[Rfam]
The family of this 90-nucleotide RNA sequence from Pipistrellus kuhlii is "mir-9261 microRNA precursor family".
The base pairs follow the family's consensus structure, which was predicted with RNAalifold.
Its family is annotated with RISC complex and miRNA-mediated post-transcriptional gene silencing in the Gene Ontology.

RNA sequence: AACAAUUUGUCCCGCGUCCCGCGGCGUUUUAAAACAGUCCCGAUUUUUGGACUUUUUUAAAACGCCGCGGGACGCGGGACAAAUUGUUCA
Numbered sequence: 001a002a003c004a005a006u007u008u009g010u011c012c013c014g015c016g017u018c019c020c021g022c023g024g025c026g027u028u029u030u031a032a033a034a035c036a037g038u039c040c041c042g043a044u045u046u047u048u049g050g051a052c053u054u055u056u057u058u059a060a061a062a063c064g065c066c067g068c069g070g071g072a073c074g075c076g077g078g079a080c081a082a083a084u085u086g087u088u089c090a
Stems, first nucleotide, its partner, number of pairs: 001088034